The family of this 81-nucleotide RNA from Sparus aurata is "Small nucleolar RNA SNORD35". Rfam 15.1 lists 1,842 matches to the family in 634 species. A search with the family's covariance model found it, with a score of 58 bits. U35 is a C/D box snoRNA located in intron 6 of ribosomal protein L13A and intron 3 of ribosomal protein S11 in humans and at homologous positions in mouse and chicken ribosomal protein genes. U35 guides the methylation of 2'-O-ribose sites in 28S rRNA. Lineage of the source: Eukaryota > Chordata > Neopterygii > Spariformes > Sparus. Its family is annotated with RNA processing and nucleolus in the Gene Ontology. A reference for the family is Nicoloso et al. (1996), "Intron-encoded, antisense small nucleolar RNAs: the characterization of nine novel species points to their direct role as guides for the 2'-O-ribose methylation of rRNAs", J Mol Biol.

RNA sequence: UGCAAAUGAUGUCUUUCUCACGAUGGUCUUCCAAGCUUAAGCUCUGACGACAAUGCCUUUGGCAAACACUGAUGCAGCCUA
Numbered sequence: 001u002g003c004a005a006a007u008g009a010u011g012u013c014u015u016u017c018u019c020a021c022g023a024u025g026g027u028c029u030u031c032c033a034a035g036c037u038u039a040a041g042c043u044c045u046g047a048c049g050a051c052a053a054u055g056c057c058u059u060u061g062g063c064a065a066a067c068a069c070u071g072a073u074g075c076a077g078c079c080u081a
Stems, first nucleotide, its partner, number of pairs: 001076004